[Rfam]
RNA sequence: UAAUCUGUAUGGGGAAGAUCCUCAUCUGGUUAUGACAGAUCCACACCUAACUGCUCACAAUCACUCAUUAUCGCAAGCCCGACUACACCAUAGACACUGAAAAACAGAGGACAACUAUGAACAAUAACUUUUUAAGAUU
Numbered sequence: 001u002a003a004u005c006u007g008u009a010u011g012g013g014g015a016a017g018a019u020c021c022u023c024a025u026c027u028g029g030u031u032a033u034g035a036c037a038g039a040u041c042c043a044c045a046c047c048u049a050a051c052u053g054c055u056c057a058c059a060a061u062c063a064c065u066c067a068u069u070a071u072c073g074c075a076a077g078c079c080c081g082a083c084u085a086c087a088c089c090a091u092a093g094a095c096a097c098u099g100a101a102a103a104a105c106a107g108a109g110g111a112c113a114a115c116u117a118u119g120a121a122c123a124a125u126a127a128c129u130u131u132u133u134a135a136g137a138u139u
Base pairs, nucleotide, nucleotide: 004137005136006135008134009133012130014128019123023119024118025117027114029112030111031110